[Rfam]
RNA sequence: CAAUCUUGAACGCUGAGUUCUUUCCUAAGGGAAAGAAGCGGGGGACCCAAUUUUAUGGGGUGAAUCCCCUUCGACCGGGAGUAUUUAUAUUCUUGAUCAAAGGGGUAGGGUUACACUCUUCGACCCGAACCCGGCAGCUAACCUCGUAAGCGUGGUAAGAGGAGGU
Number, nucleotide and partner (000 for none) at each position: 001c000002a000003a000004u000005c000006u000007u000008g000009a000010a000011c152012g151013c150014u149015g000016a000017g000018u037019u036020c035021u034022u033023u032024c031025c030026u000027a000028a000029g000030g025031g024032a023033a022034a021035g020036a019037a018038g147039c146040g145041g144042g143043g142044g000045a000046c000047c000048c057049a056050a000051u000052u000053u000054u000055a000056u049057g048058g132059g131060g130061u000062g000063a000064a000065u000066c105067c104068c103069c102070u101071u100072c000073g000074a000075c000076c000077g000078g000079g000080a000081g000082u000083a000084u000085u000086u000087a000088u000089a000090u000091u000092c000093u000094u000095g000096a000097u000098c000099a000100a071101a070102g069103g068104g067105g066106u000107a000108g126109g125110g124111u123112u000113a000114c000115a000116c000117u000118c000119u000120u000121c000122g000123a111124c110125c109126c108127g000128a000129a000130c060131c059132c058133g000134g000135c000136a000137g000138c000139u000140a000141a000142c043143c042144u041145c040146g039147u038148a000149a014150g013151c012152g011153u000154g000155g000156u000157a000158a000159g000160a000161g000162g000163a000164g000165g000166u000
RNA: c-di-AMP riboswitch aptamer (ydaO/yuaA leader)